[Rfam]
RNA sequence: CGUGGGCUAUAGCACACGAAUAUAUGGGAAUAAGGCGGAAUUUUAGUUUUUUAGAAGUUCCGCCUUAUUCCCAUAUAUUCGUGUGCUAUAGCCCACG
Numbered sequence: 001c002g003u004g005g006g007c008u009a010u011a012g013c014a015c016a017c018g019a020a021u022a023u024a025u026g027g028g029a030a031u032a033a034g035g036c037g038g039a040a041u042u043u044u045a046g047u048u049u050u051u052u053a054g055a056a057g058u059u060c061c062g063c064c065u066u067a068u069u070c071c072c073a074u075a076u077a078u079u080c081g082u083g084u085g086c087u088a089u090a091g092c093c094c095a096c097g
Stems, first nucleotide, its partner, number of pairs: 001097003005093003010090001011087007019078001021077024

The record is a 97-nucleotide RNA from Nicotiana tabacum, which matches "mir-16 microRNA precursor family" in Rfam. The family is grouped with related families in Rfam's "mir-15 clan". For this family Rfam cites "Frequent deletions and down-regulation of micro- RNA genes miR15 and miR16 at 13q14 in chronic lymphocytic leukemia" (Calin et al., Proc Natl Acad Sci U S A, 2002). Gene Ontology terms of the family: RISC complex and miRNA-mediated post-transcriptional gene silencing. Rfam 15.1 lists 4,705 matches to the family in 758 species.